The record is a 94-nucleotide sequence from Niallia endozanthoxylica, which matches "Selenocysteine transfer RNA" in Rfam. Pairs were carried over by alignment from the consensus structure, which is taken from published work.
RNA sequence: GGGGCUGAAUGGGGUACUAGUAUCCCCACGCGGUCUUCAAAACCGCUUGAGACCUGUGUGCCAGGUCUGGUGGGUUCGAUUCCCAGGGGGUCCC
Dot-bracket structure: ((((((...(((((.........))))).(((((.......)))))...(((((.........)))))..((((.......))))...))))))

The match comes from Rfam's covariance-model search (48 bits). Lineage of the source: Bacteria > Bacillati > Bacillota > Caryophanales > Niallia.